[Rfam]
RNA sequence: UAGACCAGAAGAGGCGCAUUAGCCAGGUAGUUGUUGUUAGAAGUCUAUACUUCGUAGCGGCAAUAAGGGGGACUAAUGCCGAGAAAACAUCAGCUAUAGAACUGUUGUUUUCGGUCGUUUAGGCUGAAUCCUGACGACUGUCACCUAGUACUUGGUGGAGAGCUUCUGGCCUU
Numbered sequence: 001u002a003g004a005c006c007a008g009a010a011g012a013g014g015c016g017c018a019u020u021a022g023c024c025a026g027g028u029a030g031u032u033g034u035u036g037u038u039a040g041a042a043g044u045c046u047a048u049a050c051u052u053c054g055u056a057g058c059g060g061c062a063a064u065a066a067g068g069g070g071g072a073c074u075a076a077u078g079c080c081g082a083g084a085a086a087a088c089a090u091c092a093g094c095u096a097u098a099g100a101a102c103u104g105u106u107g108u109u110u111u112c113g114g115u116c117g118u119u120u121a122g123g124c125u126g127a128a129u130c131c132u133g134a135c136g137a138c139u140g141u142c143a144c145c146u147a148g149u150a151c152u153u154g155g156u157g158g159a160g161a162g163c164u165u166c167u168g169g170c171c172u173u
Base pairs, nucleotide, nucleotide: 006168007167008166009165010164011163016079017078018077019076020075021074022073024071030064031063032062033061034060035059036058037057083112084111085110086109087108088107089106091104092103093102113139114138115137116136117135118134120133121132122131123130141158142157143156144155145154147152
Shown here is a 173-nucleotide RNA sequence from Rheinheimera salexigens, a member of the family "Lysine riboswitch aptamer".
NCBI's taxonomy places the organism under Bacteria, Pseudomonadati, Gammaproteobacteria, Chromatiales, Rheinheimera.